[Rfam]
RNA sequence: UACUGUUACUGAUGAACUUGUGUAAUACAAUGGGAAUCUCUCUGAAAUGUAAAGAGUUUUACCUUGAAGAGAAUUUUGCACUGAAACAGUA
Numbered sequence: 001u002a003c004u005g006u007u008a009c010u011g012a013u014g015a016a017c018u019u020g021u022g023u024a025a026u027a028c029a030a031u032g033g034g035a036a037u038c039u040c041u042c043u044g045a046a047a048u049g050u051a052a053a054g055a056g057u058u059u060u061a062c063c064u065u066g067a068a069g070a071g072a073a074u075u076u077u078g079c080a081c082u083g084a085a086a087c088a089g090u091a
Base pairs, nucleotide, nucleotide: 001091002090003089004088005087006086007085
RNA: Small nucleolar RNA SNORD79